[Rfam]
RNA sequence: UUUUAAAGUAAAGUGAGUGUAGCGUGGCUAUCUCUCUUCUUUUACUUUAACUAGCCUUGUGCUAGGUUUUGUCUUCGGACACCAACUCGAACUAAACGAAAUAUUUGUCUUUCUAUGAAACCAUAGAGGACAAGCGUUGAUUAUUUCCACUCAGUUUGGCAAUCACUCCUUGGAACGGGGUUGAGAGAACGGUGCACCAGGGUUCCGUCCCUGUUUGGUAAGUCGCCUAGUAUUAGCUGCUGCGGUUCCGCCCGUAGUAGUUGGGAGGUCUAGGUUCCGCCCUAACGCCACCCUCGCCGGCCGCCAGGAGAAUGAGUUCCAAACAAUUCAAG
Numbered sequence: 001u002u003u004u005a006a007a008g009u010a011a012a013g014u015g016a017g018u019g020u021a022g023c024g025u026g027g028c029u030a031u032c033u034c035u036c037u038u039c040u041u042u043u044a045c046u047u048u049a050a051c052u053a054g055c056c057u058u059g060u061g062c063u064a065g066g067u068u069u070u071g072u073c074u075u076c077g078g079a080c081a082c083c084a085a086c087u088c089g090a091a092c093u094a095a096a097c098g099a100a101a102u103a104u105u106u107g108u109c110u111u112u113c114u115a116u117g118a119a120a121c122c123a124u125a126g127a128g129g130a131c132a133a134g135c136g137u138u139g140a141u142u143a144u145u146u147c148c149a150c151u152c153a154g155u156u157u158g159g160c161a162a163u164c165a166c167u168c169c170u171u172g173g174a175a176c177g178g179g180g181u182u183g184a185g186a187g188a189a190c191g192g193u194g195c196a197c198c199a200g201g202g203u204u205c206c207g208u209c210c211c212u213g214u215u216u217g218g219u220a221a222g223u224c225g226c227c228u229a230g231u232a233u234u235a236g237c238u239g240c241u242g243c244g245g246u247u248c249c250g251c252c253c254g255u256a257g258u259a260g261u262u263g264g265g266a267g268g269u270c271u272a273g274g275u276u277c278c279g280c281c282c283u284a285a286c287g288c289c290a291c292c293c294u295c296g297c298c299g300g301c302c303g304c305c306a307g308g309a310g311a312a313u314g315a316g317u318u319c320c321a322a323a324c325a326a327u328u329c330a331a332g
Stems, first nucleotide, its partner, number of pairs: 005048006011041003019031005051065005098147006105133006112127006161318003166310005172302002176299001177297001179295002185226001187224002196215001198213005240257006263292002271284004

Shown here is a 332-nucleotide sequence from Alphacoronavirus suis, a member of the family "Alphacoronavirus 5'UTR".
Clan: Coronavirus 5' UTR.
Rfam classes the family as a cis-regulatory element.
For this family Rfam cites "Structural and functional conservation of cis-acting RNA elements in coronavirus 5'-terminal genome regions" (Madhugiri et al., Virology, 2018).
Rfam's curators write: The first 150 to 200 nucleotides within the 5' UTR of alphacoronaviruses are highly structured and shown to be conserved on the structural level among alphacoronaviruses. The 5' UTR has been predicted to contain 3 conserved stem-loops: SL1, SL2 and SL4. SL1 is important for viral replication, most likely playing a role in the template-switch of viral subgenomic RNA transcription. Mutations of the upper part of SL1 seems to have an higher impact of viral replication level.